[Rfam]
RNA: Y RNA
Organism: Microcebus murinus
RNA sequence: GGCUGGUUGGACUGCAGUGGUGUUUACAACCAACUGAUCAUAAUCAGUUACAGAUUACUUUGUUAUUUCUCCACUCCCACUGCUUUACCUGACUAGCCUUAA
Numbered sequence: 001g002g003c004u005g006g007u008u009g010g011a012c013u014g015c016a017g018u019g020g021u022g023u024u025u026a027c028a029a030c031c032a033a034c035u036g037a038u039c040a041u042a043a044u045c046a047g048u049u050a051c052a053g054a055u056u057a058c059u060u061u062g063u064u065a066u067u068u069c070u071c072c073a074c075u076c077c078c079a080c081u082g083c084u085u086u087a088c089c090u091g092a093c094u095a096g097c098c099u100u101a102a
Stems, first nucleotide, its partner, number of pairs: 001098008010090001014086001016081005022076001028064003032060002